[Rfam]
RNA sequence: AUUUACGCAAUGGGGUGUCCCGAUUAAACUUCGGGACUGAGAUUAUACUCAAUGAACCUGAUCCGGUUAGCACCGGCGUAGGGAGAGCGAAAAGGAUAAAG
Numbered sequence: 001a002u003u004u005a006c007g008c009a010a011u012g013g014g015g016u017g018u019c020c021c022g023a024u025u026a027a028a029c030u031u032c033g034g035g036a037c038u039g040a041g042a043u044u045a046u047a048c049u050c051a052a053u054g055a056a057c058c059u060g061a062u063c064c065g066g067u068u069a070g071c072a073c074c075g076g077c078g079u080a081g082g083g084a085g086a087g088c089g090a091a092a093a094g095g096a097u098a099a100a101g
Base pairs, nucleotide, nucleotide: 006089007088008087011051012050013049014048016045017037018036019035020034021033022032023031057082058081059080060079063076064075065074066073